[Rfam]
RNA sequence: GAGUCUAACAUCUAUGCAAGUGUUUGGGUGUCAAACCCAUGUGCGAAAUGAAAGUGAAUGCAGAUGGGAUCCCCCACAAGGGGUGCACCAUCGACCGAUCCUGAUGUUCUCGGAUGGAUUUGAGUAAGAGCAUAGCUGUUGGGACCCGAAAGAUGGUGAACUAUGCCUGAAUAGGGUGAAGCCAGAGGAAACUCUGGUGGAGGCUCGUAGCGGUUCUGACGUGCAAAUCGAUCGUCAAAUUUGGGUAUAGGGGCGAAAGACUAAUCGAACCAUCUAGUAGCUGGUU
Numbered sequence: 001g002a003g004u005c006u007a008a009c010a011u012c013u014a015u016g017c018a019a020g021u022g023u024u025u026g027g028g029u030g031u032c033a034a035a036c037c038c039a040u041g042u043g044c045g046a047a048a049u050g051a052a053a054g055u056g057a058a059u060g061c062a063g064a065u066g067g068g069a070u071c072c073c074c075c076a077c078a079a080g081g082g083g084u085g086c087a088c089c090a091u092c093g094a095c096c097g098a099u100c101c102u103g104a105u106g107u108u109c110u111c112g113g114a115u116g117g118a119u120u121u122g123a124g125u126a127a128g129a130g131c132a133u134a135g136c137u138g139u140u141g142g143g144a145c146c147c148g149a150a151a152g153a154u155g156g157u158g159a160a161c162u163a164u165g166c167c168u169g170a171a172u173a174g175g176g177u178g179a180a181g182c183c184a185g186a187g188g189a190a191a192c193u194c195u196g197g198u199g200g201a202g203g204c205u206c207g208u209a210g211c212g213g214u215u216c217u218g219a220c221g222u223g224c225a226a227a228u229c230g231a232u233c234g235u236c237a238a239a240u241u242u243g244g245g246u247a248u249a250g251g252g253g254c255g256a257a258a259g260a261c262u263a264a265u266c267g268a269a270c271c272a273u274c275u276a277g278u279a280g281c282u283g284g285u286u
Stems, first nucleotide, its partner, number of pairs: 005142006012135006020044003025039005048055002063092005071083002094125002096122003099118003105112002145284002148281001152274006161250011172238001174206004181198007210235004215231002218229002252262002
Rfam assigns this 286-nucleotide part of an RNA from Neolecta irregularis to the family "Eukaryotic large subunit ribosomal RNA". The base pairs follow the family's consensus structure, which is taken from published work. The organism belongs to Neolecta irregularis, within Eukaryota.